Record summary
A member of the RNA family "RT-2 RNA", 227 nucleotides long. It is annotated as a small RNA.

RNA sequence: AACGACCAGACAGAGUAAGUCCAUGUGACCGAAAUCCGUGUCAGACAGGAAGGAGAGAUCGACCGAGCCGGUAAUGCGGCUAAAUUCGUGCGGUGAUGCAAAGGAGCGGACGCUGCUUGCAUGGGUGGUGAAUUGUGCCUCAGCCACUUUCAUGCUCCCGAACUACGCAGGUAGAUAGGCACGCUACACAAAGCCUGUACGCCGCACCAACUGAUUAAACAUGGAAG
Numbered sequence: 001a002a003c004g005a006c007c008a009g010a011c012a013g014a015g016u017a018a019g020u021c022c023a024u025g026u027g028a029c030c031g032a033a034a035u036c037c038g039u040g041u042c043a044g045a046c047a048g049g050a051a052g053g054a055g056a057g058a059u060c061g062a063c064c065g066a067g068c069c070g071g072u073a074a075u076g077c078g079g080c081u082a083a084a085u086u087c088g089u090g091c092g093g094u095g096a097u098g099c100a101a102a103g104g105a106g107c108g109g110a111c112g113c114u115g116c117u118u119g120c121a122u123g124g125g126u127g128g129u130g131a132a133u134u135g136u137g138c139c140u141c142a143g144c145c146a147c148u149u150u151c152a153u154g155c156u157c158c159c160g161a162a163c164u165a166c167g168c169a170g171g172u173a174g175a176u177a178g179g180c181a182c183g184c185u186a187c188a189c190a191a192a193g194c195c196u197g198u199a200c201g202c203c204g205c206a207c208c209a210a211c212u213g214a215u216u217a218a219a220c221a222u223g224g225a226a227g
Stems, first nucleotide, its partner, number of pairs: 004042003019029002066081004088207008097199001098163001103158005112120002123149006167198005174185001